[Rfam]
RNA sequence: CGAGUGAUUCAUGGCUAAGGAACUAGGCAAAUUGGACGCGUAACUUCGGGAGAAGCGUCGCCCUCUUUUAGAGGGCCGCAGUGAAGAGGCCCAGGCGACUGUUUAGCAAAAACACAGGACUCUGCCAAAUCGAAAGAUGAAGUAUAGGGUCUGACACCUGCCCGGUGCCGGAAGGUUAAGGAAGGGGCUUAGGAGUAAUCCAAAGGUCUUAACUGAAGCCCCGGUAAACGGCGGCCGUAACUAUAACGGUCCUAAGGUAGCGAAAUUCCUUGUCGGGUAAGUUCCGACCUGCACGAAUGGUGUAACGAUCUGGGCACUGUCUCGGCCAUGAGCUCG
Numbered sequence: 001c002g003a004g005u006g007a008u009u010c011a012u013g014g015c016u017a018a019g020g021a022a023c024u025a026g027g028c029a030a031a032u033u034g035g036a037c038g039c040g041u042a043a044c045u046u047c048g049g050g051a052g053a054a055g056c057g058u059c060g061c062c063c064u065c066u067u068u069u070a071g072a073g074g075g076c077c078g079c080a081g082u083g084a085a086g087a088g089g090c091c092c093a094g095g096c097g098a099c100u101g102u103u104u105a106g107c108a109a110a111a112a113c114a115c116a117g118g119a120c121u122c123u124g125c126c127a128a129a130u131c132g133a134a135a136g137a138u139g140a141a142g143u144a145u146a147g148g149g150u151c152u153g154a155c156a157c158c159u160g161c162c163c164g165g166u167g168c169c170g171g172a173a174g175g176u177u178a179a180g181g182a183a184g185g186g187g188c189u190u191a192g193g194a195g196u197a198a199u200c201c202a203a204a205g206g207u208c209u210u211a212a213c214u215g216a217a218g219c220c221c222c223g224g225u226a227a228a229c230g231g232c233g234g235c236c237g238u239a240a241c242u243a244u245a246a247c248g249g250u251c252c253u254a255a256g257g258u259a260g261c262g263a264a265a266u267u268c269c270u271u272g273u274c275g276g277g278u279a280a281g282u283u284c285c286g287a288c289c290u291g292c293a294c295g296a297a298u299g300g301u302g303u304a305a306c307g308a309u310c311u312g313g314g315c316a317c318u319g320u321c322u323c324g325g326c327c328a329u330g331a332g333c334u335c336g
Base pairs, nucleotide, nucleotide: 001336002335003334004333009331010330011329012328013327014326015325016324018322019321020320035059036058037057038056039055044049060076061075062074063073064072065071077081089315090314091313092312093311094310095309096307097306100114101113102112117152118151119150120149121148122147123146124145125142129138130137131136155302156301157300158299160232161231162230165229166228167225168224169223170222171221174220175219176218180214181213184210185209186208187207188206189205192201193200233251234250235249236248237247238246252256262289272288273287274286275285276284277283
Rfam assigns this 336-nucleotide part of an RNA from Lewinella sp. W8 to the family "Bacterial large subunit ribosomal RNA". The family's consensus secondary structure is taken from published work. NCBI's taxonomy places the organism under Bacteria, Pseudomonadati, Saprospiria, Lewinellaceae, Lewinella.